[Rfam]
Rfam assigns this 88-nucleotide RNA from Helianthus annuus to the family "Small nucleolar RNA Z159/U59".

RNA sequence: AUCUCUUAUGAUGAUUCAAAAUUAAUAACUUUCAUUCUUCUGAUGUUAACCGUGAUGAAAGUUUUUUGGAGACCUGAACUGAAGAGAU
Numbered sequence: 001a002u003c004u005c006u007u008a009u010g011a012u013g014a015u016u017c018a019a020a021a022u023u024a025a026u027a028a029c030u031u032u033c034a035u036u037c038u039u040c041u042g043a044u045g046u047u048a049a050c051c052g053u054g055a056u057g058a059a060a061g062u063u064u065u066u067u068g069g070a071g072a073c074c075u076g077a078a079c080u081g082a083a084g085a086g087a088u
Base pairs, nucleotide, nucleotide: 003086004085005084006083
Description
By type it is a C/D-box small nucleolar RNA. Pairs were carried over by alignment from the consensus structure, which was predicted with PFOLD. A reference for the family is Chen et al. (2003), "The high diversity of snoRNAs in plants: identification and comparative study of 120 snoRNA genes from Oryza sativa", Nucleic Acids Res. Its Rfam clan is "SNORD59 clan". The match comes from Rfam's covariance-model search (66 bits). Gene Ontology terms of the family: RNA processing and nucleolus.